A member of the RNA family "Purine riboswitch aptamer" from Streptococcus intermedius, 103 nucleotides long. The source organism's lineage runs through Bacteria, Bacillati, Bacillota, Streptococcus and Streptococcus intermedius.

RNA sequence: AUAACUAAAAAUUCAUGAAAACAUAUAAUCUCCAUAAUAAGGUUGGAGAGUUUCUACCGUCUUACCGUAAAUAAGCGUGGCAUAGUCCUUAGUUAUGUUGUCA
Numbered sequence: 001a002u003a004a005c006u007a008a009a010a011a012u013u014c015a016u017g018a019a020a021a022c023a024u025a026u027a028a029u030c031u032c033c034a035u036a037a038u039a040a041g042g043u044u045g046g047a048g049a050g051u052u053u054c055u056a057c058c059g060u061c062u063u064a065c066c067g068u069a070a071a072u073a074a075g076c077g078u079g080g081c082a083u084a085g086u087c088c089u090u091a092g093u094u095a096u097g098u099u100g101u102c103a
Stems, first nucleotide, its partner, number of pairs: 018089001021086002024084002029049006058079003061075004